[Rfam]
This 64-nucleotide RNA sequence from Cnephaeus nilssonii belongs to the Rfam family "mir-9242 microRNA precursor family".
Lineage of the source: Eukaryota > Sarcopterygii > Laurasiatheria > Vespertilionidae > Cnephaeus.
RNA sequence: GGCCUCCCUCUUUGGGGCAAUCGAUCGCGGAGCCCCCCCAUUGAUCGCCCCGCAGAGGGUGGCC
Numbered sequence: 001g002g003c004c005u006c007c008c009u010c011u012u013u014g015g016g017g018c019a020a021u022c023g024a025u026c027g028c029g030g031a032g033c034c035c036c037c038c039c040a041u042u043g044a045u046c047g048c049c050c051c052g053c054a055g056a057g058g059g060u061g062g063c064c
Stems, first nucleotide, its partner, number of pairs: 001064004006059006013052006020045006027038001029036002